[Rfam]
A member of the RNA family "Bacterial RNase P class A" from Nocardia panacis, 432 nucleotides long. The family's RNA type in Rfam is ribozyme. NCBI's taxonomy places the organism under Bacteria, Bacillati, Actinomycetota, Mycobacteriales, Nocardia. It scores 251 bits against the family's covariance model.
RNA sequence: CGAGUUGGCCGGGCGACCGCGGCACGGGAACGGACAUGCGAAUGUCGCCGCCCGCCGCCGAGGAAAGUCCGGACUCCACAGAGCAGGGCGGUUGCUAACGGCAACCCGGGGUGACCCGCGGGACAGUGCCACAGAAAACAGACCGCCUGCGGCGUCGCGGCCUCGCGAGAGGUCCGAUGCCGCGUGGUGAGGGUGAAACGGUGCGGUAAGAGCGCACCAGCGCCGCGGGUGACCGCGGCGGCUAGGUAAACCCCGCCCGGAGCAAGGUCGAAGGUCGCACCGCUCGCGGUGCGACUGCGCAGGCGUCCGAGGGCUGCUCGCCCGAGCCUGCGGGUGGGCCGCUCGAGGUACCCGGCAACGGGCUACCCAGAUGGAUGGUCGCCCCCCGGCGCGAGCCGGGGACAGGAUCCGGCUUACAGGCCAACUCGUUCG
Number, nucleotide and partner (000 for none) at each position: 001c428002g427003a426004g425005u424006u423007g422008g421009c420010c419011g417012g383013g382014c381015g380016a379017c378018c377019g000020c060021g059022g058023c057024a000025c054026g053027g052028g051029a000030a000031c000032g000033g000034a000035c000036a000037u000038g000039c000040g000041a000042a000043u000044g000045u000046c000047g000048c000049c000050g000051c028052c027053c026054g025055c000056c000057g023058c022059c021060g020061a000062g000063g000064a000065a415066a414067g413068u000069c412070c411071g410072g409073a408074c262075u261076c260077c259078a000079c000080a000081g319082a318083g317084c316085a000086g258087g257088g256089c255090g254091g105092u104093u103094g102095c101096u000097a000098a000099c000100g000101g095102c094103a093104a092105c091106c120107c118108g117109g116110g115111g000112u000113g000114a000115c110116c109117c108118g107119c000120g106121g253122g252123a000124c000125a000126g251127u250128g247129c246130c245131a000132c000133a000134g000135a000136a000137a000138a000139c000140a000141g000142a000143c192144c191145g188146c187147c186148u184149g183150c182151g181152g180153c179154g178155u177156c176157g175158c000159g000160g000161c000162c000163u000164c000165g000166c000167g000168a000169g000170a000171g000172g000173u000174c000175c157176g156177a155178u154179g153180c152181c151182g150183c149184g148185u000186g147187g146188u145189g000190a000191g144192g143193g000194u000195g000196a000197a000198a000199c000200g218201g217202u216203g215204c214205g213206g000207u000208a000209a000210g000211a000212g000213c205214g204215c203216a202217c201218c200219a000220g242221c240222g239223c238224c237225g236226c235227g234228g233229g000230u000231g000232a000233c228234c227235g226236c225237g224238g223239c222240g221241g000242c220243u000244a000245g130246g129247u128248a000249a000250a127251c126252c122253c121254c090255g089256c088257c087258c086259g077260g076261a075262g074263c000264a000265a000266g340267g339268u338269c337270g000271a000272a000273g000274g000275u000276c000277g000278c000279a000280c000281c000282g000283c000284u000285c000286g000287c000288g000289g000290u000291g000292c000293g000294a000295c000296u000297g000298c000299g331300c330301a329302g328303g327304c326305g000306u000307c000308c000309g000310a000311g323312g322313g321314c320315u000316g084317c083318u082319c081320g314321c313322c312323c311324g000325a000326g304327c303328c302329u301330g300331c299332g000333g000334g000335u000336g000337g269338g268339c267340c266341g000342c000343u000344c000345g000346a000347g366348g000349u000350a000351c362352c361353c360354g359355g000356c000357a000358a000359c354360g353361g352362g351363c000364u000365a000366c347367c000368c000369a000370g000371a000372u000373g000374g000375a000376u000377g018378g017379u016380c015381g014382c013383c012384c000385c000386c000387c000388g000389g000390c000391g000392c000393g000394a000395g000396c000397c000398g000399g000400g000401g000402a000403c000404a000405g000406g000407a000408u073409c072410c071411g070412g069413c067414u066415u065416a000417c011418a000419g010420g009421c008422c007423a006424a005425c004426u003427c002428g001429u000430u000431c000432g000